[Rfam]
Shown here is a 101-nucleotide sequence from Siphonobacter sp. BAB-5385, a member of the family "SAM riboswitch aptamer (S box leader)". Rfam links the family to the GO term regulation of gene expression. The SAM riboswitch is found upstream of a number of genes which code for proteins involved in methionine or cysteine biosynthesis in Gram-positive bacteria.
RNA sequence: GGCUUAUACAGAAAGGAGGAGAGACAGGCUCUGCGAAUCCUUAGCAACUUUCCGACACGGAAUCAGUGCUAACCUGCCUAACACAUUAGGAACUAUAAACC
Numbered sequence: 001g002g003c004u005u006a007u008a009c010a011g012a013a014a015g016g017a018g019g020a021g022a023g024a025c026a027g028g029c030u031c032u033g034c035g036a037a038u039c040c041u042u043a044g045c046a047a048c049u050u051u052c053c054g055a056c057a058c059g060g061a062a063u064c065a066g067u068g069c070u071a072a073c074c075u076g077c078c079u080a081a082c083a084c085a086u087u088a089g090g091a092a093c094u095a096u097a098a099a100c101c
Stems, first nucleotide, its partner, number of pairs: 001101002004098005013042005021031003025076004043070004048066002050062004077090005